[Rfam]
A member of the RNA family "tRNA" from Aphanomyces euteiches, 81 nucleotides long. The base pairs follow the family's consensus structure, which is taken from published work.
RNA sequence: GACAGCUUGGCCGAGUGGUUAAGGCGACAGAUUACUACCCUGUUGGGGCAACCCGCGUGAGUUCGAAUCUCACAGCCGUCG
Numbered sequence: 001g002a003c004a005g006c007u008u009g010g011c012c013g014a015g016u017g018g019u020u021a022a023g024g025c026g027a028c029a030g031a032u033u034a035c036u037a038c039c040c041u042g043u044u045g046g047g048g049c050a051a052c053c054c055g056c057g058u059g060a061g062u063u064c065g066a067a068u069c070u071c072a073c074a075g076c077c078g079u080c081g
Stems, first nucleotide, its partner, number of pairs: 001080003005076003010025003027043004057073005